[Rfam]
RNA sequence: UAACCCUUGUGUAUUCGGGUCCGCCGCAUCUCCCGGAUACACUAGGGCCGGUUGGCCGGCUGUGGCGAGAGUGGCCUCCUCUGUGACCCACGGCCGGCCAUCCUCCGU
Dot-bracket structure: ...((((.((...((((((............))))))...)).))))..((.((((((((................................)))))))).)).....

Record summary:
Rfam assigns this 108-nucleotide sequence from Hartmannibacter diazotrophicus to the family "EcpR1". Perviously named SmelC291, SmrC10, or Sra33. According to its overproduction phenotype it was renamed Elongated Cell Phenotype RNA1. Rfam classes the family as a small RNA. The organism belongs to Hartmannibacter, within Bacteria. It scores 67 bits against the family's covariance model.